Annotation
The family of this 141-nucleotide RNA from Pelagibacterium lentulum is "Alphaproteobacterial sRNA BjrC1505". The organism belongs to Pelagibacterium, within Bacteria. For this family Rfam cites "Small RNAs of the Bradyrhizobium/Rhodopseudomonas lineage and their analysis" (Madhugiri et al., RNA Biol, 2012). Pairs were carried over by alignment from the consensus structure. By type it is a small RNA.
RNA sequence: AGUCUUGUUAAGUUAAAAUUAACCUGAUCGCGUUAGGUUUUGGUUAUCCAGUCUUUACUGGUUCUUCAGAGCGGUUCCUUCCCUCUGUUUGACGCCUCCCUGUUAACUUUCGAGAGCCGUUUGCUUGACGGCUCUUUUUUC
Number, nucleotide and partner (000 for none) at each position: 001a045002g044003u043004c042005u000006u000007g000008u000009u000010a000011a000012g000013u000014u000015a039016a038017a000018a000019u000020u035021a034022a033023c032024c000025u030026g000027a000028u000029c000030g025031c000032g023033u022034u021035a020036g000037g000038u016039u015040u000041u000042g004043g003044u002045u001046a000047u000048c000049c000050a063051g062052u061053c060054u000055u000056u000057a000058c000059u000060g053061g052062u051063u050064c000065u000066u000067c000068a000069g085070a084071g083072c000073g082074g081075u000076u000077c000078c000079u000080u000081c074082c073083c071084u070085c069086u000087g000088u000089u000090u000091g104092a103093c102094g101095c000096c000097u000098c000099c000100c000101u094102g093103u092104u091105a000106a000107c000108u000109u000110u000111c000112g136113a135114g134115a133116g132117c131118c130119g129120u128121u127122u000123g000124c000125u000126u000127g121128a120129c119130g118131g117132c116133u115134c114135u113136u112137u000138u000139u000140u000141c000